[Rfam]
RNA sequence: AGUCAUAUGCUUGUCUCAAAGAUUAAGCCAUGCAUGUCUAAGUAUAAACAAAUUUGUACUGUGAAACUGCGAAUGGCUCAUUAAAUCAGUUAUAGUUUAUUUGAUGGUAUCUUACUACAUGGAUAACUGUGGUAAUUCUAGAGCUAAUACAUGCGUUAAAAACCCGACUUACGAAGGGUUGUAUUUAUUAGAUACAAAACCAAUUCAUGGAAACAUGAGAUUGGUGAGUCAUAAUAACUUUUUCGAAUCGCAUGGUCUUGAACCGGCGAUGCAUCAUUCAAAUAUCUGCCCUAUCAACUUUGGAUGGUAGGAUAGAGGCCUACCAUGGUUUUAACGGGUAACGGGGAAUAAGGGUUCGAUUCCGGAGAGGGAGCCUGAGAAACGGCUACCACAUCCAAGGAAGGCAGCAGGCGCGCAACUUACCCAAUCCCGACACGGGGAGGUAGUGACAAUAAAUAACAAUACAGGGCUCUUUUGGGUCUUGUAAUUGGAAUGAGUACAAUUUAAAUACCUUAACGAGGAACAAUUGGAGGGCAAGUCUGGUGCCAGCAGCCGCGGUAAUUCCAGCUCCAAUAGCGUAUAUUAAAGUUGUUG
Numbered sequence: 001a002g003u004c005a006u007a008u009g010c011u012u013g014u015c016u017c018a019a020a021g022a023u024u025a026a027g028c029c030a031u032g033c034a035u036g037u038c039u040a041a042g043u044a045u046a047a048a049c050a051a052a053u054u055u056g057u058a059c060u061g062u063g064a065a066a067c068u069g070c071g072a073a074u075g076g077c078u079c080a081u082u083a084a085a086u087c088a089g090u091u092a093u094a095g096u097u098u099a100u101u102u103g104a105u106g107g108u109a110u111c112u113u114a115c116u117a118c119a120u121g122g123a124u125a126a127c128u129g130u131g132g133u134a135a136u137u138c139u140a141g142a143g144c145u146a147a148u149a150c151a152u153g154c155g156u157u158a159a160a161a162a163c164c165c166g167a168c169u170u171a172c173g174a175a176g177g178g179u180u181g182u183a184u185u186u187a188u189u190a191g192a193u194a195c196a197a198a199a200c201c202a203a204u205u206c207a208u209g210g211a212a213a214c215a216u217g218a219g220a221u222u223g224g225u226g227a228g229u230c231a232u233a234a235u236a237a238c239u240u241u242u243u244c245g246a247a248u249c250g251c252a253u254g255g256u257c258u259u260g261a262a263c264c265g266g267c268g269a270u271g272c273a274u275c276a277u278u279c280a281a282a283u284a285u286c287u288g289c290c291c292u293a294u295c296a297a298c299u300u301u302g303g304a305u306g307g308u309a310g311g312a313u314a315g316a317g318g319c320c321u322a323c324c325a326u327g328g329u330u331u332u333a334a335c336g337g338g339u340a341a342c343g344g345g346g347a348a349u350a351a352g353g354g355u356u357c358g359a360u361u362c363c364g365g366a367g368a369g370g371g372a373g374c375c376u377g378a379g380a381a382a383c384g385g386c387u388a389c390c391a392c393a394u395c396c397a398a399g400g401a402a403g404g405c406a407g408c409a410g411g412c413g414c415g416c417a418a419c420u421u422a423c424c425c426a427a428u429c430c431c432g433a434c435a436c437g438g439g440g441a442g443g444u445a446g447u448g449a450c451a452a453u454a455a456a457u458a459a460c461a462a463u464a465c466a467g468g469g470c471u472c473u474u475u476u477g478g479g480u481c482u483u484g485u486a487a488u489u490g491g492a493a494u495g496a497g498u499a500c501a502a503u504u505u506a507a508a509u510a511c512c513u514u515a516a517c518g519a520g521g522a523a524c525a526a527u528u529g530g531a532g533g534g535c536a537a538g539u540c541u542g543g544u545g546c547c548a549g550c551a552g553c554c555g556c557g558g559u560a561a562u563u564c565c566a567g568c569u570c571c572a573a574u575a576g577c578g579u580a581u582a583u584u585a586a587a588g589u590u591g592u593u594g
Stems, first nucleotide, its partner, number of pairs: 001584003005581007014454001016452001020447001021414001027412003031409003036070002041068003048062002077367003087288003092283002096281002102276004118153004127143002130140003161180005168173001185237006199225004207216003248269004253265004290338003297329003304326008342364004346357004369390002372387003392403001394401002420445001422444003428440005460490003463486010497517002499514001501513001527573006540567004549556002
Eukaryotic small subunit ribosomal RNA: a 594-nucleotide part of an RNA from Wallemia hederae. Rfam links the family to the GO terms structural constituent of ribosome and ribosome. Pairs were carried over by alignment from the consensus structure, which is taken from published work.